[Rfam]
RNA sequence: AUAUAAGCAAAUAUUUCUUUUUCAGGUUCACUGAAUAACUGAUGUAUCUGGUCCAUAAUAUGAACCAAAUACAUCAGUUAUUCAGUGAACCUGAAAAACAAAAUCUUUGUUUAUAU
Number, nucleotide and partner (000 for none) at each position: 001a000002u115003a114004u113005a112006a111007g110008c000009a108010a107011a106012u000013a104014u000015u101016u100017c000018u098019u097020u096021u095022u094023c093024a092025g091026g000027u089028u088029c087030a086031c085032u084033g083034a082035a081036u080037a079038a078039c077040u076041g075042a074043u073044g072045u000046a000047u000048c000049u067050g066051g065052u064053c000054c000055a000056u000057a000058a000059u000060a000061u000062g000063a000064a052065c051066c050067a049068a000069a000070u000071a000072c044073a043074u042075c041076a040077g039078u038079u037080a036081u035082u034083c033084a032085g031086u030087g029088a028089a027090c000091c025092u024093g023094a022095a021096a020097a019098a018099c000100a016101a015102a000103a000104u013105c000106u011107u010108u009109g000110u007111u006112u005113a004114u003115a002116u000
A member of the RNA family "MIR2593 microRNA precursor family" from Trifolium medium, 116 nucleotides long. Taxonomically the source falls in Trifolium (Eukaryota, Streptophyta, Fabales, Trifolieae). The base pairs follow the family's consensus structure, which was predicted with RNAalifold. Its family is annotated with RISC complex and miRNA-mediated post-transcriptional gene silencing in the Gene Ontology. A search with the family's covariance model found it, with a score of 98 bits.